Source information
azaaromatic riboswitch aptamer (yjdF RNA): a 104-nucleotide sequence from Fictibacillus macauensis. NCBI's taxonomy places the organism under Bacteria, Bacillati, Bacillota, Caryophanales, Fictibacillus macauensis.

[Rfam]
RNA sequence: UAUUGGAAAUGAAAAAUCACAGCCUGGUUGGUAGUCCAGGCGCGUAGAUCUCUCUACGCUAGUAGCCUUCCCCCCUCGGGAUGUCCAUUAUUUCCUUUUAUUUA
Numbered sequence: 001u002a003u004u005g006g007a008a009a010u011g012a013a014a015a016a017u018c019a020c021a022g023c024c025u026g027g028u029u030g031g032u033a034g035u036c037c038a039g040g041c042g043c044g045u046a047g048a049u050c051u052c053u054c055u056a057c058g059c060u061a062g063u064a065g066c067c068u069u070c071c072c073c074c075c076u077c078g079g080g081a082u083g084u085c086c087a088u089u090a091u092u093u094c095c096u097u098u099u100a101u102u103u104a
Base pairs, nucleotide, nucleotide: 005095006094007093008092009091010090011089022041023040024039025038026037027036042059043058044057045056046055047054069081070080071079072078
Dot-bracket structure: ....(((((((..........((((((........))))))((((((......)))))).........((((.....)))).......))))))).........